[Rfam]
mir-1285 microRNA precursor family: a 66-nucleotide sequence from Carlito syrichta.
RNA sequence: ACAAUGUCUCACAAUGUUGCCUAGGCUGGGUUUGAGACCAACCUGGGCAACUUGGUGAGACCUCAU
Numbered sequence: 001a002c003a004a005u006g007u008c009u010c011a012c013a014a015u016g017u018u019g020c021c022u023a024g025g026c027u028g029g030g031u032u033u034g035a036g037a038c039c040a041a042c043c044u045g046g047g048c049a050a051c052u053u054g055g056u057g058a059g060a061c062c063u064c065a066u
Stems, first nucleotide, its partner, number of pairs: 007060006014053001019048007032041003